[Rfam]
RNA sequence: CAACAGAGACGGCUUGUUGCUUUGCUUAGCAGAGAGGAAAGUCCGGACACCAUAGGGCAGCAUAGCGGCUAACGGCCGUCCACAGUGAUGUGAGGACCAGUGCAACAGAAAGCAAGUACAGUUCGGCUGUAGUGAAAUCAGGUAAACUCUAUGCGGUGUAAUGCCAAGUAUAUCGGCAACUAAGGGCGGCUCGUCCAAUGCCGAGGGGUAGGCAGCUAAAGCCUUUCAGCAAUGGUAGGCGUAGAUAAAUAACAAGCACUUUGUUCGCAAAGUACAGAAUCCGGCUUAUAGUCCCUGUUGUGGU
Numbered sequence: 001c002a003a004c005a006g007a008g009a010c011g012g013c014u015u016g017u018u019g020c021u022u023u024g025c026u027u028a029g030c031a032g033a034g035a036g037g038a039a040a041g042u043c044c045g046g047a048c049a050c051c052a053u054a055g056g057g058c059a060g061c062a063u064a065g066c067g068g069c070u071a072a073c074g075g076c077c078g079u080c081c082a083c084a085g086u087g088a089u090g091u092g093a094g095g096a097c098c099a100g101u102g103c104a105a106c107a108g109a110a111a112g113c114a115a116g117u118a119c120a121g122u123u124c125g126g127c128u129g130u131a132g133u134g135a136a137a138u139c140a141g142g143u144a145a146a147c148u149c150u151a152u153g154c155g156g157u158g159u160a161a162u163g164c165c166a167a168g169u170a171u172a173u174c175g176g177c178a179a180c181u182a183a184g185g186g187c188g189g190c191u192c193g194u195c196c197a198a199u200g201c202c203g204a205g206g207g208g209u210a211g212g213c214a215g216c217u218a219a220a221g222c223c224u225u226u227c228a229g230c231a232a233u234g235g236u237a238g239g240c241g242u243a244g245a246u247a248a249a250u251a252a253c254a255a256g257c258a259c260u261u262u263g264u265u266c267g268c269a270a271a272g273u274a275c276a277g278a279a280u281c282c283g284g285c286u287u288a289u290a291g292u293c294c295c296u297g298u299u300g301u302g303g304u
Base pairs, nucleotide, nucleotide: 001300002299003298004297005296006295008293009292010291011289012257013256014255015254016253017252018251020034021033022032023031024030025029039287040286041285043284044283045282046281047280048158049157050156051155055192056191057190058189060154061153062152063151064150065079066078067077068076069075080094081092082091083090084089095149096148100147101146102143103142117131118130119129120128121127122126162214163213164212165211173204174203175202176201177200184196185195186194187193221240222239223238224237226235227234228233
About this RNA:
The record is a 304-nucleotide RNA from Riemerella columbipharyngis, which matches "Bacterial RNase P class A" in Rfam. The match comes from Rfam's covariance-model search (213 bits). Rfam classes the family as a ribozyme. Pairs were carried over by alignment from the consensus structure, which is taken from published work. Its family is annotated with dimeric ribonuclease P complex, tRNA processing and ribonuclease P activity in the Gene Ontology.